Shown here is a 253-nucleotide RNA sequence, a member of the family "FuFi-1 RNA". Pairs were carried over by alignment from the consensus structure, which is taken from published work. Rfam's curators put it in the seed alignment. The family's RNA type in Rfam is small RNA.

RNA sequence: CGCCAAUGCGAUGGGCUAUUAAACUUUGCGGAACCUUAAACCGCCAAAGUGAGGCUCCUUAUCCACAGAAACACGAGUUCGUAAUCAUGUUAUUACAUAACCCAACGUGCAUACUCAAACUGCGAGCGAUAACGACGUUGUAAUCGAAGUAUGCAAACUUUCAAAAUGAAAGUCAUAUGUAAUAUGCAAUAAGGUGUGAGAAAACAAAUUUAGGAUAAAAAGCAGUCGUGAUACGAAGCAUGGCUGUUUUUUA
Number, nucleotide and partner (000 for none) at each position: 001c000002g055003c054004c053005a000006a000007u000008g000009c000010g000011a000012u000013g000014g000015g000016c000017u000018a000019u000020u000021a000022a000023a000024c000025u000026u000027u000028g044029c043030g042031g041032a000033a000034c214035c213036u212037u000038a210039a000040a000041c031042c030043g029044c028045c000046a000047a000048a000049g000050u000051g000052a000053g004054g003055c002056u000057c194058c193059u192060u191061a190062u189063c000064c000065a000066c000067a000068g000069a000070a000071a090072c089073a088074c000075g086076a085077g000078u237079u236080c235081g234082u233083a232084a000085u076086c075087a000088u073089g072090u071091u184092a183093u182094u181095a180096c179097a178098u177099a000100a000101c000102c000103c000104a000105a000106c000107g000108u000109g000110c000111a000112u000113a000114c000115u000116c000117a000118a000119a000120c000121u000122g000123c000124g000125a000126g000127c000128g000129a000130u000131a000132a000133c000134g000135a000136c000137g000138u000139u000140g000141u000142a000143a000144u000145c000146g000147a000148a000149g000150u000151a000152u000153g000154c000155a000156a000157a000158c000159u000160u000161u000162c000163a000164a000165a000166a000167u000168g000169a000170a000171a000172g000173u000174c000175a000176u000177a098178u097179g096180u095181a094182a093183u092184a091185u000186g000187c000188a000189a062190u061191a060192a059193g058194g057195u000196g000197u000198g000199a000200g000201a000202a000203a000204a000205c000206a000207a000208a000209u000210u038211u000212a036213g035214g034215a000216u000217a000218a251219a250220a249221a248222g247223c246224a245225g244226u243227c242228g241229u240230g239231a000232u083233a082234c081235g080236a079237a078238g000239c230240a229241u228242g227243g226244c225245u224246g223247u222248u221249u220250u219251u218252u000253a000